[Rfam]
RNA sequence: AUGGAGCUUCAGCAAGGGUGCUUGACUUUAUAACCCGGCUUAAAUUAAUCGUGGUUGUAGAGUCAUGCACCUCUGCUGGCUCUCCUG
Numbered sequence: 001a002u003g004g005a006g007c008u009u010c011a012g013c014a015a016g017g018g019u020g021c022u023u024g025a026c027u028u029u030a031u032a033a034c035c036c037g038g039c040u041u042a043a044a045u046u047a048a049u050c051g052u053g054g055u056u057g058u059a060g061a062g063u064c065a066u067g068c069a070c071c072u073c074u075g076c077u078g079g080c081u082c083u084c085c086u087g
Stems, first nucleotide, its partner, number of pairs: 003085004009079003016072006023065004028060004033055003
This 87-nucleotide RNA from Physcomitrium patens belongs to the Rfam family "MIR1223 microRNA precursor family". A reference for the family is Axtell et al. (2007), "Common functions for diverse small RNAs of land plants", Plant Cell. The sequence is in the family's curated seed alignment. Rfam 15.1 lists 12 matches to the family in 2 species.